Rfam assigns this 59-nucleotide RNA to the family "msiK RNA". It is one of the family's seed sequences. By type it is a cis-regulatory element.
[Rfam]
RNA sequence: GCGCGGCAUCCAUCACAACGGAUCGUCCGGCACGUACCUGCCGGUGAAGGAGAAAAUAA
Numbered sequence: 001g002c003g004c005g006g007c008a009u010c011c012a013u014c015a016c017a018a019c020g021g022a023u024c025g026u027c028c029g030g031c032a033c034g035u036a037c038c039u040g041c042c043g044g045u046g047a048a049g050g051a052g053a054a055a056a057u058a059a
Stems, first nucleotide, its partner, number of pairs: 009051003013047003027044006